[Rfam]
RNA sequence: AGGCAGCCUACUUGCUACAAUUAAAUGCAUGAGAGGUGUUUAACUGCUCAUAAAUCGAAUGCUUUUGCUCUUCAGACUUGCUGAGAUUUUUCUCUGAAGCUGGUCUAGUAAGCUCAAGUUCAUU
Dot-bracket structure: .((((.(((.(.(((...........))).).).)))))).....................(((..(((....(((((.(((..((....)).....))).)))))....)))..)))......
Notes:
The record is a 124-nucleotide sequence from Trifolium subterraneum, which matches "Small nucleolar RNA snoR77" in Rfam. Rfam links the family to the GO terms nucleolus and RNA processing. The family's consensus secondary structure was predicted with WAR. A reference for the family is Marker et al. (2002), "Experimental RNomics: identification of 140 candidates for small non-messenger RNAs in the plant Arabidopsis thaliana", Curr Biol.